[Rfam]
RNA sequence: GGCACACAUGUUGCUGAAGACAUCCCAGAUGAACCAACGACGGUUCAUCUACGAGAUAAAUCUGGACAAAGGCGUCCA
Numbered sequence: 001g002g003c004a005c006a007c008a009u010g011u012u013g014c015u016g017a018a019g020a021c022a023u024c025c026c027a028g029a030u031g032a033a034c035c036a037a038c039g040a041c042g043g044u045u046c047a048u049c050u051a052c053g054a055g056a057u058a059a060a061u062c063u064g065g066a067c068a069a070a071g072g073c074g075u076c077c078a
Base pairs, nucleotide, nucleotide: 029048030047031046032045033044034043035042

This 78-nucleotide RNA belongs to the Rfam family "narK RNA".
It is annotated as a cis-regulatory element.